The record is a 215-nucleotide RNA sequence from Mangrovactinospora gilvigrisea, which matches "Actinobacteria sRNA Ms_IGR-5" in Rfam. NCBI's taxonomy places the organism under Bacteria, Bacillati, Actinomycetes, Kitasatosporales, Mangrovactinospora. A reference for the family is Li et al. (2013), "Identification of small RNAs in Mycobacterium smegmatis using heterologous Hfq", RNA.
RNA sequence: ACACGUGAAAGGAGGUGGUCCGAAGAAUGAGUGCUUAUCGGACGCGUGAGGUGGCUGUCAGCUAGCCGCUCCAUCAGCGCAACAGAGGCUGUUGCCUUGUGUCGCACGCAUGGAGCGUCGGUGCAAUACCAGCAGUCACCGGCCCGUGGGCUCGCCGGAACGUCCGUCCGGUGCUCGGGACCGCAAGGUCCCGGGGAUGAGCCCACGGGCUUUUU
Numbered sequence: 001a002c003a004c005g006u007g008a009a010a011g012g013a014g015g016u017g018g019u020c021c022g023a024a025g026a027a028u029g030a031g032u033g034c035u036u037a038u039c040g041g042a043c044g045c046g047u048g049a050g051g052u053g054g055c056u057g058u059c060a061g062c063u064a065g066c067c068g069c070u071c072c073a074u075c076a077g078c079g080c081a082a083c084a085g086a087g088g089c090u091g092u093u094g095c096c097u098u099g100u101g102u103c104g105c106a107c108g109c110a111u112g113g114a115g116c117g118u119c120g121g122u123g124c125a126a127u128a129c130c131a132g133c134a135g136u137c138a139c140c141g142g143c144c145c146g147u148g149g150g151c152u153c154g155c156c157g158g159a160a161c162g163u164c165c166g167u168c169c170g171g172u173g174c175u176c177g178g179g180a181c182c183g184c185a186a187g188g189u190c191c192c193g194g195g196g197a198u199g200a201g202c203c204c205a206c207g208g209g210c211u212u213u214u215u
Stems, first nucleotide, its partner, number of pairs: 014059006061122003065118002068116007141211012154172006
It scores 90 bits against the family's covariance model. It is annotated as a small RNA.